This 189-nucleotide sequence from Pachysolen tannophilus belongs to the Rfam family "Small nucleolar RNA snR8". Gene Ontology terms of the family: nucleolus and RNA processing. The source organism's lineage runs through Eukaryota, Ascomycota, saccharomyceta, Pachysolen and Pachysolen tannophilus.

RNA sequence: UUGAUACGAACAGCUUCCUAUUCACUGCACCAUCUUUUCUAUUAAUAGGUGACUGGAGGGGAAAAGGAAAGCAAGAUAAAAUUUUUUUUUUCAACAACGACCUCAUACUGGGCAUUGCUAAUUUUUAAAAAAAAAAAAUUUUUAGAAUCUUCUAUGGCAUUAGCUAGUAACUGCGUUCUUGAUACAUAU
Numbered sequence: 001u002u003g004a005u006a007c008g009a010a011c012a013g014c015u016u017c018c019u020a021u022u023c024a025c026u027g028c029a030c031c032a033u034c035u036u037u038u039c040u041a042u043u044a045a046u047a048g049g050u051g052a053c054u055g056g057a058g059g060g061g062a063a064a065a066g067g068a069a070a071g072c073a074a075g076a077u078a079a080a081a082u083u084u085u086u087u088u089u090u091u092c093a094a095c096a097a098c099g100a101c102c103u104c105a106u107a108c109u110g111g112g113c114a115u116u117g118c119u120a121a122u123u124u125u126u127a128a129a130a131a132a133a134a135a136a137a138a139u140u141u142u143u144a145g146a147a148u149c150u151u152c153u154a155u156g157g158c159a160u161u162a163g164c165u166a167g168u169a170a171c172u173g174c175g176u177u178c179u180u181g182a183u184a185c186a187u188a189u
Stems, first nucleotide, its partner, number of pairs: 013072002016068002025058002028055002031051005091182004097176003108167003113163001114161001116159004121155001133142002

The match comes from Rfam's covariance-model search (109 bits). The family's RNA type in Rfam is H/ACA-box small nucleolar RNA. Its Rfam clan is "SNORA56 clan". For this family Rfam cites "Genetic analysis of small nuclear RNAs in Saccharomyces cerevisiae: viable sextuple mutant" (Parker et al., Mol Cell Biol, 1988).